A member of the RNA family "tRNA" from Osedax symbiont Rs1, 74 nucleotides long. Rfam's curators write: Transfer RNA (tRNA) molecules are approximately 80 nucleotides in length. Their secondary structure includes four short double-helical elements and three loops (D, anti-codon, and T loops). Further hydrogen bonds mediate the characteristic L-shaped molecular structure. tRNAs have two regions of fundamental functional importance: the anti-codon, which is responsible for specific mRNA codon recognition, and the 3' end, to which the tRNAs corresponding amino acid is attached (by aminoacyl-tRNA synthetases). tRNAs cope with the degeneracy of the genetic code in two manners: having more than one tRNA (with a specific anti-codon) for a particular amino acid; and 'wobble' base-pairing, i.e. permitting non-standard base-pairing at the 3rd anti-codon position. The family's RNA type in Rfam is transfer RNA. Pairs were carried over by alignment from the consensus structure, which is taken from published work. It scores 65 bits against the family's covariance model. The source organism's lineage runs through Bacteria, Pseudomonadati, Pseudomonadota, Gammaproteobacteria and Oceanospirillaceae.
RNA sequence: GCGCUUGUAGCUCAGCUGGAUAGAGUAGUAGGUUCCGAUCCUAUUGGUCGGGGGUUCGAAUCCCUCCAAGCGCA
Numbered sequence: 001g002c003g004c005u006u007g008u009a010g011c012u013c014a015g016c017u018g019g020a021u022a023g024a025g026u027a028g029u030a031g032g033u034u035c036c037g038a039u040c041c042u043a044u045u046g047g048u049c050g051g052g053g054g055u056u057c058g059a060a061u062c063c064c065u066c067c068a069a070g071c072g073c074a
Stems, first nucleotide, its partner, number of pairs: 001073007010026004028044005050066005